[Rfam]
RNA: Bacterial large signal recognition particle RNA
Organism: Candidatus Atribacteria bacterium MT.SAG.1
RNA sequence: UCGUGCUAGACGGGGAGGUAGCGGUGCCCUGUAACCUGCAAUCCGCUAUAGCAGGGUUGAAUUCCUGCCCGAGGUUUUAUCUUUUUAAGGCCGGCUAAGGUAAGUGGUGAUGAAGAUUGGGCCUUGUGCAGCAAAGAAUUGUGAACUCCGCCAGAUCUGGAAGGAAGCAGCGGUAAGCAAAUCUCUUUGGGUGCCGCAGGUAAACCUGAUUGGAGCAAACUGUCUUAGUAUCGCUUGGAAGGGUGAAUCGGAGGUAGGUGCACGA
Numbered sequence: 001u002c003g004u005g006c007u008a009g010a011c012g013g014g015g016a017g018g019u020a021g022c023g024g025u026g027c028c029c030u031g032u033a034a035c036c037u038g039c040a041a042u043c044c045g046c047u048a049u050a051g052c053a054g055g056g057u058u059g060a061a062u063u064c065c066u067g068c069c070c071g072a073g074g075u076u077u078u079a080u081c082u083u084u085u086u087a088a089g090g091c092c093g094g095c096u097a098a099g100g101u102a103a104g105u106g107g108u109g110a111u112g113a114a115g116a117u118u119g120g121g122c123c124u125u126g127u128g129c130a131g132c133a134a135a136g137a138a139u140u141g142u143g144a145a146c147u148c149c150g151c152c153a154g155a156u157c158u159g160g161a162a163g164g165a166a167g168c169a170g171c172g173g174u175a176a177g178c179a180a181a182u183c184u185c186u187u188u189g190g191g192u193g194c195c196g197c198a199g200g201u202a203a204a205c206c207u208g209a210u211u212g213g214a215g216c217a218a219a220c221u222g223u224c225u226u227a228g229u230a231u232c233g234c235u236u237g238g239a240a241g242g243g244u245g246a247a248u249c250g251g252a253g254g255u256a257g258g259u260g261c262a263c264g265a
Stems, first nucleotide, its partner, number of pairs: 001265006009058003012030004017025001019023001035055005064258006073249005080243010093232002096227006104220002107216002115211007123200006129191001132189005137182001139180004148173004156165003